[Rfam]
A member of the RNA family "Molybdenum/Tungsten riboswitch aptamer (Moco RNA motif)" from Carboxydothermus hydrogenoformans, 120 nucleotides long. The base pairs follow the family's consensus structure, which is taken from published work. On this family, see Weinberg et al., Nucleic Acids Res 2007: "Identification of 22 candidate structured RNAs in bacteria using the CMfinder comparative genomics pipeline". Rfam's curators put it in the seed alignment.
RNA sequence: AAAAAUAAGCUGCUCCGAGUAUUUUCACCUAAAGCUUUAGGCCAUGGUGAAAAUACCAAAGGGUACUACCGGGAAACCGGGGUGCCUCCCGUUUUGGAAAGGAGUUAUCAAAGCGCCUUU
Numbered sequence: 001a002a003a004a005a006u007a008a009g010c011u012g013c014u015c016c017g018a019g020u021a022u023u024u025u026c027a028c029c030u031a032a033a034g035c036u037u038u039a040g041g042c043c044a045u046g047g048u049g050a051a052a053a054u055a056c057c058a059a060a061g062g063g064u065a066c067u068a069c070c071g072g073g074a075a076a077c078c079g080g081g082g083u084g085c086c087u088c089c090c091g092u093u094u095u096g097g098a099a100a101g102g103a104g105u106u107a108u109c110a111a112a113g114c115g116c117c118u119u120u
Stems, first nucleotide, its partner, number of pairs: 006111001012105005019056011034042003061087006069080004088097002